[Rfam]
Shown here is a 76-nucleotide sequence from Caenorhabditis brenneri, a member of the family "mir-76 microRNA precursor family".
The family has 3 seed sequences and 6 matches in Rfam 15.1.
Rfam links the family to the GO terms miRNA-mediated post-transcriptional gene silencing and RISC complex.
The match comes from Rfam's covariance-model search (76 bits).
RNA sequence: UCCAUCUGUCAGGACUUCACAAUAGUCGAAUACCGAUAGCAGGAUAUUCGUUGUUGAUGAAGUCUUAAUGGGUGUU
Number, nucleotide and partner (000 for none) at each position: 001u000002c000003c074004a073005u072006c071007u070008g069009u068010c000011a066012g065013g064014a063015c062016u061017u060018c059019a058020c056021a055022a054023u053024a052025g051026u000027c050028g049029a048030a047031u046032a045033c043034c042035g000036a000037u000038a000039g000040c000041a000042g034043g033044a000045u032046a031047u030048u029049c028050g027051u025052u024053g023054u022055u021056g020057a000058u019059g018060a017061a016062g015063u014064c013065u012066u011067a000068a009069u008070g007071g006072g005073u004074g003075u000076u000